[Rfam]
RNA: Glycine riboswitch aptamer
RNA sequence: GGCAGCUGCGCGGGAGAGCUUUUGCGCGAUGCAAAGGCACCGAAGGAGCAACCGCCCCGGAAACUCUCAGGUCACAGGGACCGCGCGGCUGGC
Numbered sequence: 001g002g003c004a005g006c007u008g009c010g011c012g013g014g015a016g017a018g019c020u021u022u023u024g025c026g027c028g029a030u031g032c033a034a035a036g037g038c039a040c041c042g043a044a045g046g047a048g049c050a051a052c053c054g055c056c057c058c059g060g061a062a063a064c065u066c067u068c069a070g071g072u073c074a075c076a077g078g079g080a081c082c083g084c085g086c087g088g089c090u091g092g093c
Base pairs, nucleotide, nucleotide: 006088007087008086009085010084011083012082013081020037021036022035023034039072040071041070042068043067046066047065048064052060053059